[Rfam]
The family of this 66-nucleotide RNA from Bombyx mori is "mir-2774 microRNA precursor family". Gene Ontology terms of the family: miRNA-mediated post-transcriptional gene silencing and RISC complex.
RNA sequence: ACAACAUUCGGACCGACUGUCUACCGAGCAUAUCACCUGCUCGGUGGAAGACAUCCCCUUCGUCAU
Numbered sequence: 001a002c003a004a005c006a007u008u009c010g011g012a013c014c015g016a017c018u019g020u021c022u023a024c025c026g027a028g029c030a031u032a033u034c035a036c037c038u039g040c041u042c043g044g045u046g047g048a049a050g051a052c053a054u055c056c057c058c059u060u061c062g063u064c065a066u
Stems, first nucleotide, its partner, number of pairs: 004063002010057002015052001017050001020048010
The match comes from Rfam's covariance-model search (68 bits). The source organism's lineage runs through Eukaryota, Endopterygota, Lepidoptera, Heteroneura and Bombyx.